Rfam assigns this 110-nucleotide RNA sequence from Myotis davidii to the family "Small nucleolar RNA SNORA32".
From the family's description: ACA32 is a member of the H/ACA class of snoRNA that guide the sites of modification of uridines to pseudouridines.
The match comes from Rfam's covariance-model search (63 bits).
RNA sequence: UGCUAAUUAUCAGGGCUUUCAGAAGGCACGUUCUCAUCGCUGUGGAGAGAGCGUUCCCGCUAGGUUUUCCUUCUGCUACAUUGCUAGCAUUCAGGCUACUGGGGACAUUU
Dot-bracket structure: ..((..(..(((.............((...........))..)))..).))....((((...(.((.......(((..........)))...)).)...)))).......